[Rfam]
RNA: RNA anti-toxin A
RNA sequence: UAAUGAAAUAGAAAAAGGAGCUGAGCGGGAACUCAACUCCAAUGUAGAACCGUUUAAGACGGUGACUCGUUUUACAGAUUAAAUC
Dot-bracket structure: .....................((((......)))).............((((((...))))))......................